[Rfam]
RNA: mir-8/mir-141/mir-200 microRNA precursor family
Organism: Donacobius atricapilla
RNA sequence: CUCGCCAUCUUACUGGGCAGCAUUGGAUGAUCUCUGCCGUUCUAAUACUGCCUGGUAAUGAUGAUGAU
Numbered sequence: 001c002u003c004g005c006c007a008u009c010u011u012a013c014u015g016g017g018c019a020g021c022a023u024u025g026g027a028u029g030a031u032c033u034c035u036g037c038c039g040u041u042c043u044a045a046u047a048c049u050g051c052c053u054g055g056u057a058a059u060g061a062u063g064a065u066g067a068u
Stems, first nucleotide, its partner, number of pairs: 002067003006063004010058011022046006
Dot-bracket structure: .(((.(((((((((((((((.((((((.............)))))).))))))))))).)))).))).